[Rfam]
RNA sequence: CCUGUCCGGCUCACGCCCACAGGUCGGGAUGUGAUCUCGCGACGCGGGAUUGAACCAGGAA
Numbered sequence: 001c002c003u004g005u006c007c008g009g010c011u012c013a014c015g016c017c018c019a020c021a022g023g024u025c026g027g028g029a030u031g032u033g034a035u036c037u038c039g040c041g042a043c044g045c046g047g048g049a050u051u052g053a054a055c056c057a058g059g060a061a
Stems, first nucleotide, its partner, number of pairs: 001023005026056002033051007
Shown here is a 61-nucleotide RNA, a member of the family "eL15-Euryarchaeota ribosomal protein leader". It is one of the family's seed sequences. The literature on the family includes a 2020 paper in BMC Microbiol by Eckert and Weinberg, "Discovery of 20 novel ribosomal leader candidates in bacteria and archaea".